[Rfam]
RNA sequence: AUAGCAGGCUGGACGGUCGUCGGCUGCUGCAAGGCAGCGGGAGGAAAGUCCGGGCUCCACAGGACAGAAUGGUCGAUAACGUCGACCGGCCGCAAGGCUCGGGAAAGUGCAACAGAAAGCAAACCGCCGCGGUGGGGUUUUUCUGCGUCCCUUCUUUUCGGAGAAGGCGCAUGCAGCACGAGCCCCCGUCACAACCUCCGCGGUAAGGGUGAAACGGUGCGGUAAGAGCGCACCAGCAGACAGGGCGACCUGCCUGGCUUGGCAAACCCCAUUCGGAGCAAGGCCAAACAGAGAGUACGUGCGGGCCUGAGUCGGCAACGAUUCAAGCCGCGGCGCGCGGGCCGGUCCGGCCUGGCCAAUUCUCGGGUAGGCUGCUUGAGGCGGCGAGCAAUCGCCGUCCUAGAUAAAUGACCGUCGGUGGCGUGAAGCCCUCGGGAACACGCCGCGACAGAACCCGGCUUAUAAGCCUGCUAUCGAG
Numbered sequence: 001a002u003a004g005c006a007g008g009c010u011g012g013a014c015g016g017u018c019g020u021c022g023g024c025u026g027c028u029g030c031a032a033g034g035c036a037g038c039g040g041g042a043g044g045a046a047a048g049u050c051c052g053g054g055c056u057c058c059a060c061a062g063g064a065c066a067g068a069a070u071g072g073u074c075g076a077u078a079a080c081g082u083c084g085a086c087c088g089g090c091c092g093c094a095a096g097g098c099u100c101g102g103g104a105a106a107g108u109g110c111a112a113c114a115g116a117a118a119g120c121a122a123a124c125c126g127c128c129g130c131g132g133u134g135g136g137g138u139u140u141u142u143c144u145g146c147g148u149c150c151c152u153u154c155u156u157u158u159c160g161g162a163g164a165a166g167g168c169g170c171a172u173g174c175a176g177c178a179c180g181a182g183c184c185c186c187c188g189u190c191a192c193a194a195c196c197u198c199c200g201c202g203g204u205a206a207g208g209g210u211g212a213a214a215c216g217g218u219g220c221g222g223u224a225a226g227a228g229c230g231c232a233c234c235a236g237c238a239g240a241c242a243g244g245g246c247g248a249c250c251u252g253c254c255u256g257g258c259u260u261g262g263c264a265a266a267c268c269c270c271a272u273u274c275g276g277a278g279c280a281a282g283g284c285c286a287a288a289c290a291g292a293g294a295g296u297a298c299g300u301g302c303g304g305g306c307c308u309g310a311g312u313c314g315g316c317a318a319c320g321a322u323u324c325a326a327g328c329c330g331c332g333g334c335g336c337g338c339g340g341g342c343c344g345g346u347c348c349g350g351c352c353u354g355g356c357c358a359a360u361u362c363u364c365g366g367g368u369a370g371g372c373u374g375c376u377u378g379a380g381g382c383g384g385c386g387a388g389c390a391a392u393c394g395c396c397g398u399c400c401u402a403g404a405u406a407a408a409u410g411a412c413c414g415u416c417g418g419u420g421g422c423g424u425g426a427a428g429c430c431c432u433c434g435g436g437a438a439c440a441c442g443c444c445g446c447g448a449c450a451g452a453a454c455c456c457g458g459c460u461u462a463u464a465a466g467c468c469u470g471c472u473a474u475c476g477a478g
Stems, first nucleotide, its partner, number of pairs: 001474010011463001012416007020041002023038006046461003050458005055278004062348004067274005072086005087101001088099004102269002107267002109263002124208002126204007134196001216234006236258001237256003241252004282373004291364006339353005380399008